[Rfam]
c-di-GMP-I riboswitch aptamer: a 90-nucleotide sequence from Natronincola peptidivorans. The base pairs follow the family's consensus structure, which is taken from published work. It scores 72 bits against the family's covariance model. The organism belongs to Natronincola, within Bacteria.

RNA sequence: CACCGAUAAAGGCAAACUAUUCGAAAGGAUGGGACGCAAAGCCAUAGGAUCUAAAGUAGAUAUCUCUACUAAGAUAGCCGAGCCACCGAA
Numbered sequence: 001c002a003c004c005g006a007u008a009a010a011g012g013c014a015a016a017c018u019a020u021u022c023g024a025a026a027g028g029a030u031g032g033g034a035c036g037c038a039a040a041g042c043c044a045u046a047g048g049a050u051c052u053a054a055a056g057u058a059g060a061u062a063u064c065u066c067u068a069c070u071a072a073g074a075u076a077g078c079c080g081a082g083c084c085a086c087c088g089a090a
Stems, first nucleotide, its partner, number of pairs: 012037002017032006041083002047079002049075003056069004